[Rfam]
RNA sequence: AUAAAGAAUAGAGGUCGCAGUGAACAAGAUUAGCUGGUGGAGUCGAUAGACGAGAAAGCCAGUGAAAGGGAACAUUGCCGAAACAAGGGGAUAGAUAUAUCUUUUUGUUGGUCCAGACGCCAAUAACGGUUGGAUUGUCGUAAUGAAACACAUUGCGGAGCGCUAUCGAUAAA
Dot-bracket structure: .......((((.....((((((..(.......((((((...................))))))......)..))))))...((((((((((((....))))))))))))(((((((.((.......)).))))))).(((((((.......)))))))....)))).......

Lysine riboswitch aptamer: a 173-nucleotide RNA from Weissella kandleri. The family's consensus secondary structure is taken from published work. From the family's description: Riboswitches are metabolite binding domains within certain messenger RNAs that serve as precision sensors for their corresponding targets. The family has 47 seed sequences and 3,224 matches in Rfam 15.1. Taxonomically the source falls in Weissella (Bacteria, Bacillati, Bacilli, Lactobacillales). The match comes from Rfam's covariance-model search (91 bits).